[Rfam]
RNA sequence: GUGUCCGCUGGUCGGAAUGUCGGCCUGCACUCUUGCGUCCGCCCGCUACGCUGACCGGGUGCGCUGCCGCAACGGCGCGCAAAGCCGACAGCCGUCGCAACCCAGGGAGCCUCUUCCAUG
Numbered sequence: 001g002u003g004u005c006c007g008c009u010g011g012u013c014g015g016a017a018u019g020u021c022g023g024c025c026u027g028c029a030c031u032c033u034u035g036c037g038u039c040c041g042c043c044c045g046c047u048a049c050g051c052u053g054a055c056c057g058g059g060u061g062c063g064c065u066g067c068c069g070c071a072a073c074g075g076c077g078c079g080c081a082a083a084g085c086c087g088a089c090a091g092c093c094g095u096c097g098c099a100a101c102c103c104a105g106g107g108a109g110c111c112u113c114u115u116c117c118a119u120g
Stems, first nucleotide, its partner, number of pairs: 060081004066076004084098002087096003
This 120-nucleotide RNA sequence from Streptomyces albus belongs to the Rfam family "Streptomyces-metH RNA". Pairs were carried over by alignment from the consensus structure, which is taken from published work. NCBI's taxonomy places the organism under Bacteria, Bacillati, Kitasatosporales, Streptomycetaceae, Streptomyces.